[Rfam]
RNA sequence: UUUUUUUGAUUUGUUUAAGAGGCUGAAAAUCUUGGGAUAGUGUGUGUUGUCAUCAGCUUCAUCUCUUUGUUUCUACUAGAUGGCAGUUAAAUAACGACACCAGAUUA
Numbered sequence: 001u002u003u004u005u006u007u008g009a010u011u012u013g014u015u016u017a018a019g020a021g022g023c024u025g026a027a028a029a030u031c032u033u034g035g036g037a038u039a040g041u042g043u044g045u046g047u048u049g050u051c052a053u054c055a056g057c058u059u060c061a062u063c064u065c066u067u068u069g070u071u072u073c074u075a076c077u078a079g080a081u082g083g084c085a086g087u088u089a090a091a092u093a094a095c096g097a098c099a100c101c102a103g104a105u106u107a
Stems, first nucleotide, its partner, number of pairs: 044100006055088004060083001062080003
Overview:
The family of this 107-nucleotide sequence from Aegilops tauschii is "Small nucleolar RNA snoR97". Rfam 15.1 lists 862 matches to the family in 223 species. Lineage of the source: Eukaryota > Streptophytina > Embryophyta > Mesangiospermae > Aegilops tauschii. It scores 70 bits against the family's covariance model. The literature on the family includes a 2002 paper in Curr Biol by Marker et al., "Experimental RNomics: identification of 140 candidates for small non-messenger RNAs in the plant Arabidopsis thaliana". Gene Ontology terms of the family: nucleolus and RNA processing. The family's consensus secondary structure was predicted with WAR.